[Rfam]
RNA sequence: UGCAUACAAAGGCAAACUCAGGCGAAAGCUGGGGACGCAAAGCCAGGAAUCUAAAGCAGAUGCUACGAUCGACCGGCUGCUAUG
Numbered sequence: 001u002g003c004a005u006a007c008a009a010a011g012g013c014a015a016a017c018u019c020a021g022g023c024g025a026a027a028g029c030u031g032g033g034g035a036c037g038c039a040a041a042g043c044c045a046g047g048a049a050u051c052u053a054a055a056g057c058a059g060a061u062g063c064u065a066c067g068a069u070c071g072a073c074c075g076g077c078u079g080c081u082a083u084g
Stems, first nucleotide, its partner, number of pairs: 012038002017033004022029002041078004046074002049069003056063002
c-di-GMP-I riboswitch aptamer: an 84-nucleotide RNA sequence from Acidaminobacter hydrogenoformans. Pairs were carried over by alignment from the consensus structure, which is taken from published work. On this family, see Sudarsan et al., Science 2008: "Riboswitches in Eubacteria Sense the Second Messenger Cyclic Di-GMP". The match comes from Rfam's covariance-model search (61 bits).